[Rfam]
RNA sequence: AGUACCUGUGUUUGUUUUUGUUUAAUCUGUAGAUGAAGACUUACAGACAGGUGCAAAAAAGUAAAUCCUCUUUUGCAACCCAGAACUCAUGGUUCAGUAUGAGUUUGGAUACAUAUAAGAAGGAACAUG
Numbered sequence: 001a002g003u004a005c006c007u008g009u010g011u012u013u014g015u016u017u018u019u020g021u022u023u024a025a026u027c028u029g030u031a032g033a034u035g036a037a038g039a040c041u042u043a044c045a046g047a048c049a050g051g052u053g054c055a056a057a058a059a060a061g062u063a064a065a066u067c068c069u070c071u072u073u074u075g076c077a078a079c080c081c082a083g084a085a086c087u088c089a090u091g092g093u094u095c096a097g098u099a100u101g102a103g104u105u106u107g108g109a110u111a112c113a114u115a116u117a118a119g120a121a122g123g124a125a126c127a128u129g
Stems, first nucleotide, its partner, number of pairs: 002054008011045001014040008026031001066125001068123002071120005081108001083106008
A member of the RNA family "Small nucleolar RNA SNORA40" from Rhinolophus ferrumequinum, 129 nucleotides long. The family's consensus secondary structure was predicted with RNAalifold. The literature on the family includes a 1997 paper in J Mol Biol by Ofengand and Bakin, "Mapping to nucleotide resolution of pseudouridine residues in large subunit ribosomal RNAs from representative eukaryotes, prokaryotes, archaebacteria, mitochondria and chloroplasts". It scores 124 bits against the family's covariance model. NCBI's taxonomy places the organism under Eukaryota, Eumetazoa, Vertebrata, Laurasiatheria, Rhinolophus. Rfam describes the family as follows. The snoRNA ACA 40 belongs to the H/ACA family of snoRNAs and guides the pseudouridylation of 28S rRNA subunit at position U4565. NB This family has a high threshold value to exclude a large number of closely related sequences that do not appear to have conserved H and ACA boxes, and may be pseudogenes. It is annotated as an H/ACA-box small nucleolar RNA.